[Rfam]
RNA sequence: AAUAUGCGAUGAAGCAAGAGGUUGCCGGACUUCGGGGAAUUCUUGCUGAGUAUGUCUGAUCAAAGAAUCGGGCGACAA
Numbered sequence: 001a002a003u004a005u006g007c008g009a010u011g012a013a014g015c016a017a018g019a020g021g022u023u024g025c026c027g028g029a030c031u032u033c034g035g036g037g038a039a040u041u042c043u044u045g046c047u048g049a050g051u052a053u054g055u056c057u058g059a060u061c062a063a064a065g066a067a068u069c070g071g072g073c074g075a076c077a078a
Stems, first nucleotide, its partner, number of pairs: 014046003018042003025035004053077004058073001060071002
RNA: S10-Clostridia ribosomal protein leader
Organism: Caloramator australicus